[Rfam]
RNA: FMN riboswitch aptamer (RFN element)
Organism: Rodentibacter trehalosifermentans
RNA sequence: CGGCAUUCUCAGGGCAGGGUGAAAUUCCCUACCGGCGGUAAAGCCCGCGAGCACUUAAAAGUACAGUCAAUUUUAACCGCACUUUUAGGGUUAGCAGAUUUGGUGAAAUUCCAAAGCCGACAGUAUAGUCUGGAUGAAAGAGAAUAAAG
Numbered sequence: 001c002g003g004c005a006u007u008c009u010c011a012g013g014g015c016a017g018g019g020u021g022a023a024a025u026u027c028c029c030u031a032c033c034g035g036c037g038g039u040a041a042a043g044c045c046c047g048c049g050a051g052c053a054c055u056u057a058a059a060a061g062u063a064c065a066g067u068c069a070a071u072u073u074u075a076a077c078c079g080c081a082c083u084u085u086u087a088g089g090g091u092u093a094g095c096a097g098a099u100u101u102g103g104u105g106a107a108a109u110u111c112c113a114a115a116g117c118c119g120a121c122a123g124u125a126u127a128g129u130c131u132g133g134a135u136g137a138a139a140g141a142g143a144a145u146a147a148a149g
Base pairs, nucleotide, nucleotide: 005145006144007143008142009141010140017029018028019027031129032128033119034118035048036047037046038045043117044116051095052094099115100114101113102112103111121132122131123130